[Rfam]
RNA sequence: UCCUCGCCCAAAGAAUCGCAGUCGAAGCUAACGCACGGAGACGCCCUCCGCGGUGUUCUCAUCCAACAAAACGCUUUGGGAGAAAGUCCCCGGACAGCCCCGAACAGGGGACUCCGCGUCAACGCGCCGCCAUAGAAGCAGCGUCGUCUCUUCACUGUUCCCGGUCCUCCUGCGCGCCUUCCACCGUUUGCACUUGGCCACUCCCCUCUUUGCUCACUCGGGCCCCAAGCUGCUCACUACGGAUGAAGAUAUGAGUCCGAGCGGUGCAAGGUUCGGGCUGUUGAGAGAAGGGCUCUGUGGUUGGGGAGGUGUCUGGAUACCGCCUGGGACGCCGUGGUCGCUGGCUUGCCAGUAGCAGUGUCGAGGUUACUUCGUCGAGAAGAUAGUUAUGCGAUUGCCUUCGUCCCCUUUACGGGCCGGAGGUAACUCGAUGGGGCUUAUUCUUGGUGCGAGG
Numbered sequence: 001u002c003c004u005c006g007c008c009c010a011a012a013g014a015a016u017c018g019c020a021g022u023c024g025a026a027g028c029u030a031a032c033g034c035a036c037g038g039a040g041a042c043g044c045c046c047u048c049c050g051c052g053g054u055g056u057u058c059u060c061a062u063c064c065a066a067c068a069a070a071a072c073g074c075u076u077u078g079g080g081a082g083a084a085a086g087u088c089c090c091c092g093g094a095c096a097g098c099c100c101c102g103a104a105c106a107g108g109g110g111a112c113u114c115c116g117c118g119u120c121a122a123c124g125c126g127c128c129g130c131c132a133u134a135g136a137a138g139c140a141g142c143g144u145c146g147u148c149u150c151u152u153c154a155c156u157g158u159u160c161c162c163g164g165u166c167c168u169c170c171u172g173c174g175c176g177c178c179u180u181c182c183a184c185c186g187u188u189u190g191c192a193c194u195u196g197g198c199c200a201c202u203c204c205c206c207u208c209u210u211u212g213c214u215c216a217c218u219c220g221g222g223c224c225c226c227a228a229g230c231u232g233c234u235c236a237c238u239a240c241g242g243a244u245g246a247a248g249a250u251a252u253g254a255g256u257c258c259g260a261g262c263g264g265u266g267c268a269a270g271g272u273u274c275g276g277g278c279u280g281u282u283g284a285g286a287g288a289a290g291g292g293c294u295c296u297g298u299g300g301u302u303g304g305g306g307a308g309g310u311g312u313c314u315g316g317a318u319a320c321c322g323c324c325u326g327g328g329a330c331g332c333c334g335u336g337g338u339c340g341c342u343g344g345c346u347u348g349c350c351a352g353u354a355g356c357a358g359u360g361u362c363g364a365g366g367u368u369a370c371u372u373c374g375u376c377g378a379g380a381a382g383a384u385a386g387u388u389a390u391g392c393g394a395u396u397g398c399c400u401u402c403g404u405c406c407c408c409u410u411u412a413c414g415g416g417c418c419g420g421a422g423g424u425a426a427c428u429c430g431a432u433g434g435g436g437c438u439u440a441u442u443c444u445u446g447g448u449g450c451g452a453g454g
Base pairs, nucleotide, nucleotide: 002454003453004452005451006450007449008447009446010445011444014396015395016394017393018392019391022080023078024077025076026075027074028073038060039059040058041057084439085438086437088436089435090434091433098110099109100108101107114129116127117126118125119124318369319368324365325364328362329361330360333355343350344349398423399422400421401420402419403418
RNA: RNase MRP